[Rfam]
RNA sequence: GUAAGAAUGAUGAAGAAAUCAUUCGGAUUCCCACUGAUAUUUAUUUGUGAUUACCACAACCAGCUACUUCUGACUUCAC
Numbered sequence: 001g002u003a004a005g006a007a008u009g010a011u012g013a014a015g016a017a018a019u020c021a022u023u024c025g026g027a028u029u030c031c032c033a034c035u036g037a038u039a040u041u042u043a044u045u046u047g048u049g050a051u052u053a054c055c056a057c058a059a060c061c062a063g064c065u066a067c068u069u070c071u072g073a074c075u076u077c078a079c
Stems, first nucleotide, its partner, number of pairs: 001079002003076003
A member of the RNA family "Small nucleolar RNA R12" from Solanum lycopersicum, 79 nucleotides long. It scores 60 bits against the family's covariance model. Rfam's curators write: snoR12 is a C/D box small nucleolar RNA, which acts as a methylation guide for 25S ribosomal RNA in plants. snoR12 has been alternatively named snoZ44 in Arabidopsis and snoZ131 in rice. On this family, see Chen et al., Nucleic Acids Res 2003: "The high diversity of snoRNAs in plants: identification and comparative study of 120 snoRNA genes from Oryza sativa".